Rfam assigns this 75-nucleotide sequence from Rhinolophus ferrumequinum to the family "Small nucleolar RNA SNORD113/SNORD114 family". Rfam links the family to the GO terms nucleolus and RNA processing. For this family Rfam cites "Identification of tandemly-repeated C/D snoRNA genes at the imprinted human 14q32 domain reminiscent of those at the Prader-Willi/Angelman syndrome region" (Cavaille et al., Hum Mol Genet, 2002). The family's RNA type in Rfam is C/D-box small nucleolar RNA. Rfam's curators write: The imprinted human domain at 14q32 contains two clusters of tandemly repeated small nucleolar RNAs named 14q(I) and 14q(II) snoRNAs. NCBI's taxonomy places the organism under Eukaryota, Craniata, Mammalia, Eutheria, Rhinolophus.

[Rfam]
RNA sequence: UGGACCAGUGAUGACGACUGGUGGCGUAUGACUCACGGAUGAUGAAUAAUGUGUGUCUGCAAGUCUGAGGUUCAA
Numbered sequence: 001u002g003g004a005c006c007a008g009u010g011a012u013g014a015c016g017a018c019u020g021g022u023g024g025c026g027u028a029u030g031a032c033u034c035a036c037g038g039a040u041g042a043u044g045a046a047u048a049a050u051g052u053g054u055g056u057c058u059g060c061a062a063g064u065c066u067g068a069g070g071u072u073c074a075a
Base pairs, nucleotide, nucleotide: 002073003072004071005070006069